[Rfam]
RNA sequence: CCCGGCAAUGAAUUACCGGGCUAUUAUCCUACGUCCCUUUGGGACG
Numbered sequence: 001c002c003c004g005g006c007a008a009u010g011a012a013u014u015a016c017c018g019g020g021c022u023a024u025u026a027u028c029c030u031a032c033g034u035c036c037c038u039u040u041g042g043g044a045c046g
Base pairs, nucleotide, nucleotide: 001020002019003018004017005016007014008013033045034044035043036042037041
The family of this 46-nucleotide RNA from Desulfomonile tiedjei is "Acido-Lenti-1 RNA".
It scores 38 bits against the family's covariance model.
Lineage of the source: Bacteria > Pseudomonadati > Desulfomonilia > Desulfomonile > Desulfomonile tiedjei.